[Rfam]
RNA sequence: GUAGAUGCUCAUUCCACCUUCUAUGCUUGCUUCGGCUUCAUAAACCUGGGAAUGACGCAGAGCCAUUUACGGUGCCUAACGUCCGAUUAUUGAUGAAGCUUGCUUCAUCGCUGUUGGACGUAACGUUGAGUGGGGCACCUUAAAGUUGUCUUUCAGACCUGAUUUUUAUUGCACGCUUGCCGCUGGUCGGUAAGCGUUUUUUU
Numbered sequence: 001g002u003a004g005a006u007g008c009u010c011a012u013u014c015c016a017c018c019u020u021c022u023a024u025g026c027u028u029g030c031u032u033c034g035g036c037u038u039c040a041u042a043a044a045c046c047u048g049g050g051a052a053u054g055a056c057g058c059a060g061a062g063c064c065a066u067u068u069a070c071g072g073u074g075c076c077u078a079a080c081g082u083c084c085g086a087u088u089a090u091u092g093a094u095g096a097a098g099c100u101u102g103c104u105u106c107a108u109c110g111c112u113g114u115u116g117g118a119c120g121u122a123a124c125g126u127u128g129a130g131u132g133g134g135g136c137a138c139c140u141u142a143a144a145g146u147u148g149u150c151u152u153u154c155a156g157a158c159c160u161g162a163u164u165u166u167u168a169u170u171g172c173a174c175g176c177u178u179g180c181c182g183c184u185g186g187u188c189g190g191u192a193a194g195c196g197u198u199u200u201u202u203u
Stems, first nucleotide, its partner, number of pairs: 001063002006059003009055004015050001017049001019042001027035001029033001071139007081119005092109004148158003173197010
GlmZ RNA activator of glmS mRNA: a 203-nucleotide sequence from Dickeya dadantii.
Pairs were carried over by alignment from the consensus structure, which is taken from published work.
Rfam classes the family as a small RNA.
NCBI's taxonomy places the organism under Bacteria, Pseudomonadati, Pseudomonadota, Enterobacterales, Dickeya dadantii.
Rfam describes the family as follows. This RNA was discovered in E. coli during a large scale screen. The sraJ gene was expressed in early logarithmic phase, but its level decreased with cell growth.